[Rfam]
RNA: Purine riboswitch aptamer
RNA sequence: AAUCUAUGGAAGCAACCAACUCGUAUAUCCUCAAUAAUAUGGUUUGAGGGUCUCUACUAGGAACCAAAAAUCCUAACUACGAGUAUAGGAUACGUGCGU
Numbered sequence: 001a002a003u004c005u006a007u008g009g010a011a012g013c014a015a016c017c018a019a020c021u022c023g024u025a026u027a028u029c030c031u032c033a034a035u036a037a038u039a040u041g042g043u044u045u046g047a048g049g050g051u052c053u054c055u056a057c058u059a060g061g062a063a064c065c066a067a068a069a070a071u072c073c074u075a076a077c078u079a080c081g082a083g084u085a086u087a088g089g090a091u092a093c094g095u096g097c098g099u
Stems, first nucleotide, its partner, number of pairs: 019084007029049006058075005